[Rfam]
RNA sequence: UGACGUCUAUAGACGUCAAUUCAAAUGCAACUGUUGACUGCCAAAGACGUCUAUAGACGUCAAUUCAAAUACAACCGUUGACGUCUAUAGACGUCAAUUCAAAUACAACCGUUGACUGCCAAAGACGUCUAUAGACGUCAAUUCA
Numbered sequence: 001u002g003a004c005g006u007c008u009a010u011a012g013a014c015g016u017c018a019a020u021u022c023a024a025a026u027g028c029a030a031c032u033g034u035u036g037a038c039u040g041c042c043a044a045a046g047a048c049g050u051c052u053a054u055a056g057a058c059g060u061c062a063a064u065u066c067a068a069a070u071a072c073a074a075c076c077g078u079u080g081a082c083g084u085c086u087a088u089a090g091a092c093g094u095c096a097a098u099u100c101a102a103a104u105a106c107a108a109c110c111g112u113u114g115a116c117u118g119c120c121a122a123a124g125a126c127g128u129c130u131a132u133a134g135a136c137g138u139c140a141a142u143u144c145a
Base pairs, nucleotide, nucleotide: 002017003016004015005014006013007012027048033064034063035062036061037060038059049058050057051056077098078097079096080095081094082093083092084091085090111142112141113140114139115138116137127136128135129134
Rfam assigns this 145-nucleotide RNA sequence from Menidia menidia to the family "STAXI RNA". The base pairs follow the family's consensus structure, which is taken from published work. It is annotated as a small RNA. Lineage of the source: Eukaryota > Clupeocephala > Ovalentaria > Atheriniformes > Menidia.